[Rfam]
RNA sequence: AUUUGAAAAAGGCAAAUCUGUCGAAAGGUGGAGACGCAAAGGUACGGGUCUAAGGGAGACUAUGAUGGCUGGCCUACCAAA
Numbered sequence: 001a002u003u004u005g006a007a008a009a010a011g012g013c014a015a016a017u018c019u020g021u022c023g024a025a026a027g028g029u030g031g032a033g034a035c036g037c038a039a040a041g042g043u044a045c046g047g048g049u050c051u052a053a054g055g056g057a058g059a060c061u062a063u064g065a066u067g068g069c070u071g072g073c074c075u076a077c078c079a080a081a
Stems, first nucleotide, its partner, number of pairs: 012037002017032006040075004045071003048066003055060001